[Rfam]
Shown here is an 81-nucleotide sequence from Enterococcus sp. PFB1-1, a member of the family "SAM-III riboswitch aptamer (SMK box)". On this family, see Fuchs et al., Nat Struct Mol Biol 2006: "The S(MK) box is a new SAM-binding RNA for translational regulation of SAM synthetase". The match comes from Rfam's covariance-model search (80 bits). The organism belongs to Enterococcus, within Bacteria.
RNA sequence: UAAAGUUGCAAGUUCCCGAGAGGAUUCGCAAAAUGCGAAGAUGCCUUGUAACCCAAAUUAACGAGGGGGAAUCCUAUAAUG
Numbered sequence: 001u002a003a004a005g006u007u008g009c010a011a012g013u014u015c016c017c018g019a020g021a022g023g024a025u026u027c028g029c030a031a032a033a034u035g036c037g038a039a040g041a042u043g044c045c046u047u048g049u050a051a052c053c054c055a056a057a058u059u060a061a062c063g064a065g066g067g068g069g070a071a072u073c074c075u076a077u078a079a080u081g
Stems, first nucleotide, its partner, number of pairs: 013071005020047004025039005052066002